[Rfam]
RNA sequence: CUUCAUCCCCGGGGGAGCGCCAUGCAUGCGCUUGAGAGGGAGGCCGCAACCUCCGACCCGCCGAACCUGAUCCGGCUGACACCGGCGUAGGGAGUGGAAGCGGCGUCCGC
Numbered sequence: 001c002u003u004c005a006u007c008c009c010c011g012g013g014g015g016a017g018c019g020c021c022a023u024g025c026a027u028g029c030g031c032u033u034g035a036g037a038g039g040g041a042g043g044c045c046g047c048a049a050c051c052u053c054c055g056a057c058c059c060g061c062c063g064a065a066c067c068u069g070a071u072c073c074g075g076c077u078g079a080c081a082c083c084g085g086c087g088u089a090g091g092g093a094g095u096g097g098a099a100g101c102g103g104c105g106u107c108c109g110c
Base pairs, nucleotide, nucleotide: 006098007097008096010060011059012058013057016032017031018030019029020028039054040053041052042051043050066091067090068089069088072085073084074083075082
Dot-bracket structure: .....(((.((((..(((((.......)))))......(((((......)))))..)))).....((((..((((......))))..))))....)))............
Shown here is a 110-nucleotide RNA sequence from Sphingomonas jinjuensis, a member of the family "TPP riboswitch aptamer (THI element)". The base pairs follow the family's consensus structure, which is taken from published work. Lineage of the source: Bacteria > Pseudomonadota > Alphaproteobacteria > Sphingomonadaceae > Sphingomonas.